Rfam assigns this 156-nucleotide RNA sequence from Populus euphratica to the family "MIR2912 microRNA precursor family".
It is one of the family's seed sequences.
[Rfam]
RNA sequence: UCUAGAACUCGAGAUAUGGGCUGAACACUGAAUAGUGUCUAGGCUGCAGGACAGAUUUCGACUUCUCUUUUGUUGCUACAAUUUGAACUUGAAAACGGCUGUUUUGAAUCUUAGACUCUUCAUGAAAGUUUUAGGUCUAUGUCUUAGCUUUCUAUC
Numbered sequence: 001u002c003u004a005g006a007a008c009u010c011g012a013g014a015u016a017u018g019g020g021c022u023g024a025a026c027a028c029u030g031a032a033u034a035g036u037g038u039c040u041a042g043g044c045u046g047c048a049g050g051a052c053a054g055a056u057u058u059c060g061a062c063u064u065c066u067c068u069u070u071u072g073u074u075g076c077u078a079c080a081a082u083u084u085g086a087a088c089u090u091g092a093a094a095a096c097g098g099c100u101g102u103u104u105u106g107a108a109u110c111u112u113a114g115a116c117u118c119u120u121c122a123u124g125a126a127a128g129u130u131u132u133a134g135g136u137c138u139a140u141g142u143c144u145u146a147g148c149u150u151u152c153u154a155u156c
Stems, first nucleotide, its partner, number of pairs: 003154005008147002011145010021134005027129003035123003041119003045115001048112004054105002058101001060099001062098002068092002072088003